[Rfam]
The family of this 381-nucleotide RNA sequence from Erysiphe necator is "Nuclear RNase P". Rfam classes the family as a ribozyme. On this family, see Frank and Pace, Annu Rev Biochem 1998: "Ribonuclease P: unity and diversity in a tRNA processing ribozyme". Lineage of the source: Eukaryota > Opisthokonta > Fungi > Erysiphaceae > Erysiphe. It scores 52 bits against the family's covariance model.
RNA sequence: UCCUUUGCAAUGCUGCGUUUCUAUGCUACAAACAGAAAAGUUGAAAAUCACAACUUAUUCAUGAUAGCAAUUGCAUAUGAGAAAUUCGGAGUAAUCUUCAAAGUGUUCAACUCUUAGAUCGUAAUUUAAGAUUUUGGCCUGCCCGUGAGGGUUCAGCGUGAACUCACGCUUGUAAUUGGCAUAAGAAAAGCAGGGCAAGUUUUCACUUUGCUAUUUCCCUCAAAAGGGGUCGUAGUUGAGAUAAAUCUUGUCCCUAUGGGAGAGCCAUUACGAAGAUUGUGUGUGCCUUUGCAUGACACUUAAGUGCAAUACGCAGCGUGUAAAUCCUCAUAACAUUUUAUUUGGAGAUACACAAUUCGAUUCCGAUUACUCUGUUAAGGA
Numbered sequence: 001u002c003c004u005u006u007g008c009a010a011u012g013c014u015g016c017g018u019u020u021c022u023a024u025g026c027u028a029c030a031a032a033c034a035g036a037a038a039a040g041u042u043g044a045a046a047a048u049c050a051c052a053a054c055u056u057a058u059u060c061a062u063g064a065u066a067g068c069a070a071u072u073g074c075a076u077a078u079g080a081g082a083a084a085u086u087c088g089g090a091g092u093a094a095u096c097u098u099c100a101a102a103g104u105g106u107u108c109a110a111c112u113c114u115u116a117g118a119u120c121g122u123a124a125u126u127u128a129a130g131a132u133u134u135u136g137g138c139c140u141g142c143c144c145g146u147g148a149g150g151g152u153u154c155a156g157c158g159u160g161a162a163c164u165c166a167c168g169c170u171u172g173u174a175a176u177u178g179g180c181a182u183a184a185g186a187a188a189a190g191c192a193g194g195g196c197a198a199g200u201u202u203u204c205a206c207u208u209u210g211c212u213a214u215u216u217c218c219c220u221c222a223a224a225a226g227g228g229g230u231c232g233u234a235g236u237u238g239a240g241a242u243a244a245a246u247c248u249u250g251u252c253c254c255u256a257u258g259g260g261a262g263a264g265c266c267a268u269u270a271c272g273a274a275g276a277u278u279g280u281g282u283g284u285g286c287c288u289u290u291g292c293a294u295g296a297c298a299c300u301u302a303a304g305u306g307c308a309a310u311a312c313g314c315a316g317c318g319u320g321u322a323a324a325u326c327c328u329c330a331u332a333a334c335a336u337u338u339u340a341u342u343u344g345g346a347g348a349u350a351c352a353c354a355a356u357u358c359g360a361u362u363c364c365g366a367u368u369a370c371u372c373u374g375u376u377a378a379g380g381a
Stems, first nucleotide, its partner, number of pairs: 001381004007375003012317007022077004038056006087365005096275004141152004155170005172271004178266003193255003318353005